[Rfam]
The family of this 515-nucleotide RNA from Streptomyces klenkii is "Saccharopolyspora sRNA 350". Gene Ontology term of the family: regulation of secondary metabolite biosynthetic process. Rfam 15.1 lists 1,170 matches to the family in 705 species. Taxonomically the source falls in Streptomyces (Bacteria, Actinomycetota, Actinomycetes, Kitasatosporales). The literature on the family includes a 2013 paper in PLoS One by Liu et al., "Prediction and characterization of small non-coding RNAs related to secondary metabolites in Saccharopolyspora erythraea".
RNA sequence: UUGACGGUGAAGUCCCAGUUGCUCUCCGACUCCGCGGCCAGGGCCUUGUCGCCGAAGUAGCCGCCGUCGGCGAUGACGCCGAGGACGGCCGGGUCCUCGUACUCGCCCUGGUGGAUCUUGUUGAGCUUGCCGUGGGCGACCAGCACCACUUGGUCGGCCGGAUGCCCGGCCUCCACGAGGACGUCACCCGGCCGGAACUCCCGCUGGGUGAAGCGGCCCGCGAGCGCUUCGAGCACCGCCGGGUCGCCGAAGCCGCGCAGCAGAGGGAGCUCGCCCAGCUCCGCCGGGAUGACCCGGACGUCGGCGCCCGUCGAGACGAACUCGACCCGGCCGUCGCCCAGCGUGUGCGUCAGGCGCCGGUUGACCCGGUACGUACCGCCCGGGACGUGCACCCAUGACAGCAUGCGCAGGAGCCACCGCGAGGUGAUUCCCUGCAUCUGCGGCACGGACUUUGUCGUGGUCGCCAGAUUCCGUGCGGCCUCGGUGCCCAGGCUCAGCCGGCCGGGGCUGUUAUU
Numbered sequence: 001u002u003g004a005c006g007g008u009g010a011a012g013u014c015c016c017a018g019u020u021g022c023u024c025u026c027c028g029a030c031u032c033c034g035c036g037g038c039c040a041g042g043g044c045c046u047u048g049u050c051g052c053c054g055a056a057g058u059a060g061c062c063g064c065c066g067u068c069g070g071c072g073a074u075g076a077c078g079c080c081g082a083g084g085a086c087g088g089c090c091g092g093g094u095c096c097u098c099g100u101a102c103u104c105g106c107c108c109u110g111g112u113g114g115a116u117c118u119u120g121u122u123g124a125g126c127u128u129g130c131c132g133u134g135g136g137c138g139a140c141c142a143g144c145a146c147c148a149c150u151u152g153g154u155c156g157g158c159c160g161g162a163u164g165c166c167c168g169g170c171c172u173c174c175a176c177g178a179g180g181a182c183g184u185c186a187c188c189c190g191g192c193c194g195g196a197a198c199u200c201c202c203g204c205u206g207g208g209u210g211a212a213g214c215g216g217c218c219c220g221c222g223a224g225c226g227c228u229u230c231g232a233g234c235a236c237c238g239c240c241g242g243g244u245c246g247c248c249g250a251a252g253c254c255g256c257g258c259a260g261c262a263g264a265g266g267g268a269g270c271u272c273g274c275c276c277a278g279c280u281c282c283g284c285c286g287g288g289a290u291g292a293c294c295c296g297g298a299c300g301u302c303g304g305c306g307c308c309c310g311u312c313g314a315g316a317c318g319a320a321c322u323c324g325a326c327c328c329g330g331c332c333g334u335c336g337c338c339c340a341g342c343g344u345g346u347g348c349g350u351c352a353g354g355c356g357c358c359g360g361u362u363g364a365c366c367c368g369g370u371a372c373g374u375a376c377c378g379c380c381c382g383g384g385a386c387g388u389g390c391a392c393c394c395a396u397g398a399c400a401g402c403a404u405g406c407g408c409a410g411g412a413g414c415c416a417c418c419g420c421g422a423g424g425u426g427a428u429u430c431c432c433u434g435c436a437u438c439u440g441c442g443g444c445a446c447g448g449a450c451u452u453u454g455u456c457g458u459g460g461u462c463g464c465c466a467g468a469u470u471c472c473g474u475g476c477g478g479c480c481u482c483g484g485u486g487c488c489c490a491g492g493c494u495c496a497g498c499c500g501g502c503c504g505g506g507g508c509u510g511u512u513a514u515u
Stems, first nucleotide, its partner, number of pairs: 006393004011388001015384002018331002021328001025325002028322001031319002039315001042312003048308001050306006057236002062231002066227002068114001070112002078106001080105004085100004120225003125221002129217002132214002135209001137207001139205001141203001143201001157192005163186001165180001169176001239297002243293004247288002252285001254283002257281001259280003263274001265272001332345003356380001358378003364374002394434002397431001400428001402426003406421003410418001440479002443476001445474005451467002454464002481513001483509003487506003491502001
The match comes from Rfam's covariance-model search (169 bits). It is annotated as an antisense RNA.